Overview:
Shown here is a 105-nucleotide sequence from Virgibacillus phasianinus, a member of the family "SAM riboswitch aptamer (S box leader)". A search with the family's covariance model found it, with a score of 82 bits. Rfam's curators write: The SAM riboswitch is found upstream of a number of genes which code for proteins involved in methionine or cysteine biosynthesis in Gram-positive bacteria.
RNA sequence: AGCUUAUCAAGAGAGGUAUAGGGACUGGCCCGAUGACACCUCAGCAACCAGCCAAUUAUGGCACGGUGCUAAUUCCACCAGGUACUAGUUACCGGCAGAUAAGAA
Numbered sequence: 001a002g003c004u005u006a007u008c009a010a011g012a013g014a015g016g017u018a019u020a021g022g023g024a025c026u027g028g029c030c031c032g033a034u035g036a037c038a039c040c041u042c043a044g045c046a047a048c049c050a051g052c053c054a055a056u057u058a059u060g061g062c063a064c065g066g067u068g069c070u071a072a073u074u075c076c077a078c079c080a081g082g083u084a085c086u087a088g089u090u091a092c093c094g095g096c097a098g099a100u101a102a103g104a105a
Stems, first nucleotide, its partner, number of pairs: 003103006013042005021031003026077003043070004048066002051062004074097001079094001081093004
Dot-bracket structure: ..((((((....(((((...(((..[[[)))......)))))((((.((.((((....))))..))))))...(]]].(.((((.....)))))..)))))))..
The source organism's lineage runs through Bacteria, Bacillati, Bacillota, Bacillaceae and Virgibacillus.